RNA sequence: UCGGCUCUGACAGUCCACCCGUACAUAUGUUUCCGUGCUUGACAAUGAGUUCAAUCACGUCACAAUUUAUGGGUCGCCGGUCAUUGAGUU
Dot-bracket structure: ................(((((((.((.(((...((((.((((........)))).))))..))))).)))))))................

mir-52 microRNA precursor family: a 90-nucleotide sequence from Caenorhabditis brenneri. Rfam 15.1 lists 11 matches to the family in 8 species. For this family Rfam cites "An abundant class of tiny RNAs with probable regulatory roles in Caenorhabditis elegans" (Lau et al., Science, 2001).